[Rfam]
RNA: permuted transfer-messenger RNA
Organism: Methylobacterium durans
RNA sequence: GAGGUUGAUGACCGGUUCGUAAUAACGUUUCAGGACCCGGGGGCGGUACCCGGCGCCUCCACCAUGAGCACAACGCGGUGUGCUUCUGUUGGGGGCGAAAUAGGUUCGACUGGACGGUAAAAGGACCGCGAGUUCUAUCUCGCUUCGGCGAGAGACGAUGCGACUUUCGGUAAGGACUCGACCGGCCUGACGCAGGACACCCCUGGUUCAGGCACCUGGCCAAAACUCUAAAUGCCAACGAUAACGUUGUCAUGGAUGCCCGCCUCGCGGCGUAA
Numbered sequence: 001g002a003g004g005u006u007g008a009u010g011a012c013c014g015g016u017u018c019g020u021a022a023u024a025a026c027g028u029u030u031c032a033g034g035a036c037c038c039g040g041g042g043g044c045g046g047u048a049c050c051c052g053g054c055g056c057c058u059c060c061a062c063c064a065u066g067a068g069c070a071c072a073a074c075g076c077g078g079u080g081u082g083c084u085u086c087u088g089u090u091g092g093g094g095g096c097g098a099a100a101u102a103g104g105u106u107c108g109a110c111u112g113g114a115c116g117g118u119a120a121a122a123g124g125a126c127c128g129c130g131a132g133u134u135c136u137a138u139c140u141c142g143c144u145u146c147g148g149c150g151a152g153a154g155a156c157g158a159u160g161c162g163a164c165u166u167u168c169g170g171u172a173a174g175g176a177c178u179c180g181a182c183c184g185g186c187c188u189g190a191c192g193c194a195g196g197a198c199a200c201c202c203c204u205g206g207u208u209c210a211g212g213c214a215c216c217u218g219g220c221c222a223a224a225a226c227u228c229u230a231a232a233u234g235c236c237a238a239c240g241a242u243a244a245c246g247u248u249g250u251c252a253u254g255g256a257u258g259c260c261c262g263c264c265u266c267g268c269g270g271c272g273u274a275a
Stems, first nucleotide, its partner, number of pairs: 001135003005131001014127004026116003031112003037053005054097007